RNA sequence: UACUUGCUCCCUCGCGACACUAGGUUGGGAACCCCGCCAGGUCCGGAAGGAAGCAACGGUACCUUCUGAUGUGGGCGCCGAGGAUCGGUGGGUAGAG
Numbered sequence: 001u002a003c004u005u006g007c008u009c010c011c012u013c014g015c016g017a018c019a020c021u022a023g024g025u026u027g028g029g030a031a032c033c034c035c036g037c038c039a040g041g042u043c044c045g046g047a048a049g050g051a052a053g054c055a056a057c058g059g060u061a062c063c064u065u066c067u068g069a070u071g072u073g074g075g076c077g078c079c080g081a082g083g084a085u086c087g088g089u090g091g092g093u094a095g096a097g
Stems, first nucleotide, its partner, number of pairs: 004091005010083005015075001018073003023067002027063002034059003042051003
Description:
The family of this 97-nucleotide sequence from Thiosulfatimonas sediminis is "Bacterial small signal recognition particle RNA". The match comes from Rfam's covariance-model search (60 bits). It is annotated as a non-coding RNA gene. Clan: SRP clan.